The family of this 141-nucleotide RNA from Sciurus carolinensis is "U4 spliceosomal RNA". Its family is annotated with U4 snRNP and spliceosomal tri-snRNP complex assembly in the Gene Ontology. The family's consensus secondary structure is taken from published work. Taxonomically the source falls in Sciurus (Eukaryota, Boreoeutheria, Sciuridae, Sciurini). The family's RNA type in Rfam is spliceosomal small nuclear RNA. The match comes from Rfam's covariance-model search (106 bits).

[Rfam]
RNA sequence: UAAAUUGCACAGUGGCAGUAUUGUAGCCAAUGAGGUUUAUCUGAGGCACGAUUAUUGCUAACUGAAAACUUUUCCCAAUACCCCAUCAUGAUGACUUACAAUAUAGUCAGCAUUGAUAAUUUUUGCCAGUCUCUACAGAGA
Numbered sequence: 001u002a003a004a005u006u007g008c009a010c011a012g013u014g015g016c017a018g019u020a021u022u023g024u025a026g027c028c029a030a031u032g033a034g035g036u037u038u039a040u041c042u043g044a045g046g047c048a049c050g051a052u053u054a055u056u057g058c059u060a061a062c063u064g065a066a067a068a069c070u071u072u073u074c075c076c077a078a079u080a081c082c083c084c085a086u087c088a089u090g091a092u093g094a095c096u097u098a099c100a101a102u103a104u105a106g107u108c109a110g111c112a113u114u115g116a117u118a119a120u121u122u123u124u125g126c127c128a129g130u131c132u133c134u135a136c137a138g139a140g141a
Base pairs, nucleotide, nucleotide: 020052021051022050023049024048026047027046028045034042035041085117086116087115088113089112090111092109093108094107095106096105130141131140132139133138